[Rfam]
This 126-nucleotide RNA sequence from Carlito syrichta belongs to the Rfam family "U4atac minor spliceosomal RNA". On this family, see Marz et al., J Mol Evol 2008: "Evolution of spliceosomal snRNA genes in metazoan animals". U4atac is an essential component of the minor U12-type spliceosome complex which is required for removal of the rarer class of eukaryotic introns (AT-AC, U12-type). Its family is annotated with mRNA 5'-splice site recognition, pre-mRNA 5'-splice site binding and U4atac snRNP in the Gene Ontology. The family's consensus secondary structure is taken from published work. By type it is a spliceosomal small nuclear RNA.

RNA sequence: GACAUUCUUUUCUUGGGGUUGAGUUACUGUCCAAUGAGUGUCUAGUAAGGACAGUACUGCUAAAACCUACACAACACACCCACAUCAACUAGAGCUUUGCUUUAUCUUGGUGUAAUUUUUGGAAAA
Number, nucleotide and partner (000 for none) at each position: 001g000002a000003c000004a000005u000006u018007c017008u016009u015010u000011u000012c000013u000014u000015g009016g008017g007018g006019u000020u000021g060022a000023g058024u000025u000026a055027c054028u053029g052030u051031c050032c049033a000034a000035u000036g000037a000038g046039u045040g000041u000042c000043u000044a000045g039046u038047a000048a000049g032050g031051a030052c029053a028054g027055u026056a000057c000058u023059g000060c021061u000062a000063a000064a000065a000066c000067c000068u000069a000070c000071a000072c000073a000074a000075c000076a000077c000078a000079c000080c000081c000082a113083c112084a111085u110086c109087a108088a000089c000090u104091a103092g102093a101094g100095c099096u000097u000098u000099g095100c094101u093102u092103u091104a090105u000106c000107u000108u087109g086110g085111u084112g083113u082114a000115a000116u000117u000118u000119u000120u000121g000122g000123a000124a000125a000126a000